[Rfam]
RNA sequence: AGCUCGACGGGGUCGACUGCGCGCGUGACGACGAGGUAGUCACGCAUCACGAUGCCGUGACGGUUCUC
Numbered sequence: 001a002g003c004u005c006g007a008c009g010g011g012g013u014c015g016a017c018u019g020c021g022c023g024c025g026u027g028a029c030g031a032c033g034a035g036g037u038a039g040u041c042a043c044g045c046a047u048c049a050c051g052a053u054g055c056c057g058u059g060a061c062g063g064u065u066c067u068c
Stems, first nucleotide, its partner, number of pairs: 004063003008059002012029002016026002035056004040052002044048001
The family of this 68-nucleotide RNA from Rhodococcus erythropolis is "ASdes TB sRNA".
Lineage of the source: Bacteria > Actinomycetota > Actinomycetes > Rhodococcus > Rhodococcus erythropolis.
By type it is a small RNA.
On this family, see Arnvig and Young, Mol Microbiol 2009: "Identification of small RNAs in Mycobacterium tuberculosis".